[Rfam]
RNA sequence: UGCCCAGCCGUGUCAGAUUCGGUGCCCGUCCCCCCGGGGCAGGCACCGGCCCGGAAGGCUGCCAUAGAAACACUGGCCCAUGGGCCCUGGUCCCCUCUGCUGGGCCUUGGGGAUAAAUUUGGCUGCAGACACCA
Numbered sequence: 001u002g003c004c005c006a007g008c009c010g011u012g013u014c015a016g017a018u019u020c021g022g023u024g025c026c027c028g029u030c031c032c033c034c035c036g037g038g039g040c041a042g043g044c045a046c047c048g049g050c051c052c053g054g055a056a057g058g059c060u061g062c063c064a065u066a067g068a069a070a071c072a073c074u075g076g077c078c079c080a081u082g083g084g085c086c087c088u089g090g091u092c093c094c095c096u097c098u099g100c101u102g103g104g105c106c107u108u109g110g111g112g113a114u115a116a117a118u119u120u121g122g123c124u125g126c127a128g129a130c131a132c133c134a
Stems, first nucleotide, its partner, number of pairs: 002062001005061003020048007028040003074125005085112005
The family of this 134-nucleotide RNA from Pipistrellus kuhlii is "Small nucleolar RNA SNORA5". The source organism's lineage runs through Eukaryota, Sarcopterygii, Boreoeutheria, Yangochiroptera and Pipistrellus. Rfam links the family to the GO terms RNA processing and nucleolus. ACA5 is a member of the H/ACA class of snoRNA that guide the sites of modification of uridines to pseudouridines. It is annotated as an H/ACA-box small nucleolar RNA.